[Rfam]
RNA sequence: GCUAUGGGGUUUACGAACACCCCAAGAGGCUUUGGCCCAAGUUUCGUGUCCAACCAAUCCACAGGAAGGAUGCGCCUAUG
Dot-bracket structure: ....((((((........)))))).....................((((((................)))))).......

The family of this 80-nucleotide RNA from Paramylibacter kogurei is "chrB-a RNA". NCBI's taxonomy places the organism under Bacteria, Pseudomonadati, Pseudomonadota, Rhodobacterales, Paramylibacter. Pairs were carried over by alignment from the consensus structure, which is taken from published work.